[Rfam]
RNA: Small nucleolar RNA SNORD34
RNA sequence: UUCUAUCAGUGAUGAAUUACUUUUACCUACAUUGCUUGAUCUAUAUAUAUGAGAAAAACACAUUACUGAGAUAGGA
Numbered sequence: 001u002u003c004u005a006u007c008a009g010u011g012a013u014g015a016a017u018u019a020c021u022u023u024u025a026c027c028u029a030c031a032u033u034g035c036u037u038g039a040u041c042u043a044u045a046u047a048u049a050u051g052a053g054a055a056a057a058a059c060a061c062a063u064u065a066c067u068g069a070g071a072u073a074g075g076a
Stems, first nucleotide, its partner, number of pairs: 001076002004073004